RNA sequence: UCGGCUCACCUUUACUCGGAUCGUCCGGCACGUUCCUGCCGGUGAAGGGAAACGCA
Numbered sequence: 001u002c003g004g005c006u007c008a009c010c011u012u013u014a015c016u017c018g019g020a021u022c023g024u025c026c027g028g029c030a031c032g033u034u035c036c037u038g039c040c041g042g043u044g045a046a047g048g049g050a051a052a053c054g055c056a
Base pairs, nucleotide, nucleotide: 009048010047011046012045013044014043025042026041027040028039029038030037